The family of this 104-nucleotide RNA from Halalkalibacter oceani is "S10-Clostridia ribosomal protein leader". The literature on the family includes a 2020 paper in BMC Microbiol by Eckert and Weinberg, "Discovery of 20 novel ribosomal leader candidates in bacteria and archaea".

RNA sequence: UGACAGCGAUGAUGCGAAAGGUUGCUGACACACCAGGCCCCUUUGCCAUGGCAGGGUGUAGGAAAUUUUCGCGGAGUAUGUCUGUUUCUAAAAAUGGACGAUAA
Numbered sequence: 001u002g003a004c005a006g007c008g009a010u011g012a013u014g015c016g017a018a019a020g021g022u023u024g025c026u027g028a029c030a031c032a033c034c035a036g037g038c039c040c041c042u043u044u045g046c047c048a049u050g051g052c053a054g055g056g057u058g059u060a061g062g063a064a065a066u067u068u069u070c071g072c073g074g075a076g077u078a079u080g081u082c083u084g085u086u087u088c089u090a091a092a093a094a095u096g097g098a099c100g101a102u103a104a
Stems, first nucleotide, its partner, number of pairs: 014072003018069004025061003079103004086098003

It scores 44 bits against the family's covariance model.